The record is a 55-nucleotide RNA from Bradyrhizobium sp. BTAi1, which matches "terC RNA" in Rfam. The source organism's lineage runs through Bacteria, Pseudomonadati, Pseudomonadota, Nitrobacteraceae and Bradyrhizobium. The sequence is in the family's curated seed alignment.

[Rfam]
RNA sequence: CCGGAGAUCCGGGCCCCUCUGAUAGUCUGCACGGCUAUGAUGUCGGACUCUCUUU
Numbered sequence: 001c002c003g004g005a006g007a008u009c010c011g012g013g014c015c016c017c018u019c020u021g022a023u024a025g026u027c028u029g030c031a032c033g034g035c036u037a038u039g040a041u042g043u044c045g046g047a048c049u050c051u052c053u054u055u
Stems, first nucleotide, its partner, number of pairs: 006049001008047005022038006
Pairs were carried over by alignment from the consensus structure, which is taken from published work.